[Rfam]
RNA: sraA
RNA sequence: AGGUAUUUGAGUAUAUGGGGAUAAAUGUCUCACAUUCAACGACCAGCAUGCGUGUAAAAAACAAAUGGGGGAUAAAAUCCCCCAUUUUUAUUUCUU
Numbered sequence: 001a002g003g004u005a006u007u008u009g010a011g012u013a014u015a016u017g018g019g020g021a022u023a024a025a026u027g028u029c030u031c032a033c034a035u036u037c038a039a040c041g042a043c044c045a046g047c048a049u050g051c052g053u054g055u056a057a058a059a060a061a062c063a064a065a066u067g068g069g070g071g072a073u074a075a076a077a078u079c080c081c082c083c084a085u086u087u088u089u090a091u092u093u094c095u096u
Base pairs, nucleotide, nucleotide: 008038010036011035012034016032017031018030019029020028063087064086065085066084067083068082069081070080071079072078073077